RNA sequence: GGAAUGAGAGUUCAUAAGACAGGGAAGAGGUAGAGCAUGGAUGGAGUUCUCAAGAGCAAAAUAGAGCUCUUGUGACUCUACUCAUGCACUGCCUCUUCCCUGGCUUUACCUCCCUCUCCUUCC
Numbered sequence: 001g002g003a004a005u006g007a008g009a010g011u012u013c014a015u016a017a018g019a020c021a022g023g024g025a026a027g028a029g030g031u032a033g034a035g036c037a038u039g040g041a042u043g044g045a046g047u048u049c050u051c052a053a054g055a056g057c058a059a060a061a062u063a064g065a066g067c068u069c070u071u072g073u074g075a076c077u078c079u080a081c082u083c084a085u086g087c088a089c090u091g092c093c094u095c096u097u098c099c100c101u102g103g104c105u106u107u108a109c110c111u112c113c114c115u116c117u118c119c120u121u122c123c
Base pairs, nucleotide, nucleotide: 016106017105018104020102021101022100023099024098025097026096028094029093030092031091032090033089035087036086037085038084039083040082044078045077
Shown here is a 123-nucleotide RNA from Pyrus ussuriensis x Pyrus communis, a member of the family "MIR408 microRNA precursor family".
For this family Rfam cites "High throughput approaches reveal splicing of primary microRNA transcripts and tissue specific expression of mature microRNAs in Vitis vinifera" (Mica et al., BMC Genomics, 2009).